[Rfam]
RNA sequence: GUGAUAAAGAAGAAGUUAUCCGCUUCUCACCUUAUUGGCUUUGCUGGUAGGGUCAAUAAAGCAAUGAUGGCACAUAUGUGUUUUGUGGAGCGGGUACUGAAGUAUCCGCUUAUUUUAUUAUUA
Numbered sequence: 001g002u003g004a005u006a007a008a009g010a011a012g013a014a015g016u017u018a019u020c021c022g023c024u025u026c027u028c029a030c031c032u033u034a035u036u037g038g039c040u041u042u043g044c045u046g047g048u049a050g051g052g053u054c055a056a057u058a059a060a061g062c063a064a065u066g067a068u069g070g071c072a073c074a075u076a077u078g079u080g081u082u083u084u085g086u087g088g089a090g091c092g093g094g095u096a097c098u099g100a101a102g103u104a105u106c107c108g109c110u111u112a113u114u115u116u117a118u119u120a121u122u123a
Stems, first nucleotide, its partner, number of pairs: 011027006029053003036047001038044002089110009

A member of the RNA family "Ribosomal protein L20 leader" from Aminipila luticellarii, 123 nucleotides long. The source organism's lineage runs through Bacteria, Bacillati, Bacillota, Clostridia and Aminipila. From the family's description: This family is a putative r-protein leader autoregulatory structure found in B. subtilis and other low-GC Gram-positive bacteria. It is located in the 5' untranslated regions of mRNAs encoding initiation factor 3 followed by ribosomal proteins L35 and L20 (infC-rpmI-rplT).